[Rfam]
The family of this 502-nucleotide RNA from Streptomyces albireticuli is "Saccharopolyspora sRNA 350". Rfam 15.1 lists 1,170 matches to the family in 705 species. The family's RNA type in Rfam is antisense RNA. Its family is annotated with regulation of secondary metabolite biosynthetic process in the Gene Ontology. Lineage of the source: Bacteria > Actinomycetota > Actinomycetes > Streptomycetaceae > Streptomyces. A search with the family's covariance model found it, with a score of 174 bits.
RNA sequence: GUGAACGCCCAGGUGCCGUCCGGCUCCAGCGGCACCGUCUCGCCGAAGUAGUCCCCGUCGGCCAGCACGCCGAGCACGGUCUCGUCGCCGUACUUGCCGGGGCCGGUGCGGUUGAGCUUGCCGUGGGCGAUCAGGUAGAUGUGAUCGGCCGGGGCGCCCACCUCGACGAGCGUGUCGCCCGCCGCGUACUCGCGCUGGACGAAGCCGUCCGCCAGUGCCUCCAGCGCGGUGUUGUCGUCGAAGCCCCGCAGGAGGGGCAGUUCGCCCAGCUCCGGCGGGAUGACCCGCACCUCCGUGCCGGUCGAGAUGAACUCGACCCGGCCGUCCCCGACGGUGUAGGUCAGUCGCCUGUUCACCCGGUACGUGCCCGCGGACACCUGCACCCACGGCAGCACCCGCAGCAGCCAGCGGGAGGAGAUCCCCUGCAUCUGCGGUACGGACUUCGUCGUGGUGGCGAGCUGCCGUGCUGCGGCUGUGCCCAGGCUCAGCUGGGACUCGCCCG
Numbered sequence: 001g002u003g004a005a006c007g008c009c010c011a012g013g014u015g016c017c018g019u020c021c022g023g024c025u026c027c028a029g030c031g032g033c034a035c036c037g038u039c040u041c042g043c044c045g046a047a048g049u050a051g052u053c054c055c056c057g058u059c060g061g062c063c064a065g066c067a068c069g070c071c072g073a074g075c076a077c078g079g080u081c082u083c084g085u086c087g088c089c090g091u092a093c094u095u096g097c098c099g100g101g102g103c104c105g106g107u108g109c110g111g112u113u114g115a116g117c118u119u120g121c122c123g124u125g126g127g128c129g130a131u132c133a134g135g136u137a138g139a140u141g142u143g144a145u146c147g148g149c150c151g152g153g154g155c156g157c158c159c160a161c162c163u164c165g166a167c168g169a170g171c172g173u174g175u176c177g178c179c180c181g182c183c184g185c186g187u188a189c190u191c192g193c194g195c196u197g198g199a200c201g202a203a204g205c206c207g208u209c210c211g212c213c214a215g216u217g218c219c220u221c222c223a224g225c226g227c228g229g230u231g232u233u234g235u236c237g238u239c240g241a242a243g244c245c246c247c248g249c250a251g252g253a254g255g256g257g258c259a260g261u262u263c264g265c266c267c268a269g270c271u272c273c274g275g276c277g278g279g280a281u282g283a284c285c286c287g288c289a290c291c292u293c294c295g296u297g298c299c300g301g302u303c304g305a306g307a308u309g310a311a312c313u314c315g316a317c318c319c320g321g322c323c324g325u326c327c328c329c330g331a332c333g334g335u336g337u338a339g340g341u342c343a344g345u346c347g348c349c350u351g352u353u354c355a356c357c358c359g360g361u362a363c364g365u366g367c368c369c370g371c372g373g374a375c376a377c378c379u380g381c382a383c384c385c386a387c388g389g390c391a392g393c394a395c396c397c398g399c400a401g402c403a404g405c406c407a408g409c410g411g412g413a414g415g416a417g418a419u420c421c422c423c424u425g426c427a428u429c430u431g432c433g434g435u436a437c438g439g440a441c442u443u444c445g446u447c448g449u450g451g452u453g454g455c456g457a458g459c460u461g462c463c464g465u466g467c468u469g470c471g472g473c474u475g476u477g478c479c480c481a482g483g484c485u486c487a488g489c490u491g492g493g494a495c496u497c498g499c500c501c502g
Base pairs, nucleotide, nucleotide: 001383002382003381005379012322015319019316020315022313023312025310026309033306034302035301036300041297042296043295045293046292048227049226052223057218058217059105060104061103062102069097071096072095073094074093076091077090078089079088080087111216112215113214114213116212117211120208121207123205124203128197129196134191137190138189148183150181151180152179153178155172156171159168228290234284235283236282237281238280239279245275246274248272250271251270254265256263323336324335325334326333345373346372347371348370351367354366355365356364385425386424388422389421391419393417395415397412399410401409431470432469433468434467436465437464438463439462442458443457444456445455446454471501472500475495476494478493479492480491481490482489